[Rfam]
Nucleotides: 084
Base pairs, nucleotide, nucleotide: 001084002083003082004081005080006079007078008077009076010075011074012073013072014071015070016069017068018067019066020065021064022063023062024061025060026059027058028057029056030055031054032053033052034051035050036049037048038047039046
Number, partner (000 for none) and nucleotide at each position: 001084u002083a003082u004081g005080a006079g007078g008077u009076u010075g011074g012073u013072g014071c015070a016069a017068a018067a019066g020065u021064a022063a023062u024061u025060g026059g027058g028057g029056u030055u031054u032053u033052u034051g035050c036049u037048a038047u039046u040000c041000a042000a043000a044000g045000u046039a047038a048037u049036g050035g051034c052033a053032a054031a055030a056029a057028c058027c059026u060025c061024a062023a063022u064021u065020a066019u067018u068017u069016u070015u071014g072013c073012a074011c075010c076009a077008a078007c079006c080005u081004c082003a083002u084001a